[Rfam]
RNA sequence: GAUGGCAGUGACGACUCGGAAAUAUUCAAGCUCAACAGACCAAAUCACAGGCCUCUCUCUAUCUAUGGGAUUGGUUUGUAUGCCGAUUAUCCCGCUGAACCGAGCCAUC
Numbered sequence: 001g002a003u004g005g006c007a008g009u010g011a012c013g014a015c016u017c018g019g020a021a022a023u024a025u026u027c028a029a030g031c032u033c034a035a036c037a038g039a040c041c042a043a044a045u046c047a048c049a050g051g052c053c054u055c056u057c058u059c060u061a062u063c064u065a066u067g068g069g070a071u072u073g074g075u076u077u078g079u080a081u082g083c084c085g086a087u088u089a090u091c092c093c094g095c096u097g098a099a100c101c102g103a104g105c106c107a108u109c
Base pairs, nucleotide, nucleotide: 001109002108003107004106005105006104
RNA: Small nucleolar RNA Z107/R87